[Rfam]
RNA sequence: GCUGAUGCUGGAGGUGACACUGAUGACGUGAGCUGGAGACGGGGUGCUACGUCAUCGUUGUCAUCGUCAUCAUCAUCACC
Numbered sequence: 001g002c003u004g005a006u007g008c009u010g011g012a013g014g015u016g017a018c019a020c021u022g023a024u025g026a027c028g029u030g031a032g033c034u035g036g037a038g039a040c041g042g043g044g045u046g047c048u049a050c051g052u053c054a055u056c057g058u059u060g061u062c063a064u065c066g067u068c069a070u071c072a073u074c075a076u077c078a079c080c
Stems, first nucleotide, its partner, number of pairs: 001077001003075005009069003013065005021060006028053001029051002031048003
Dot-bracket structure: (.(((((.(((.(((((...((((((.((((((............))).)).).))))))))))).))).))))).)...
RNA: mir-598 microRNA precursor family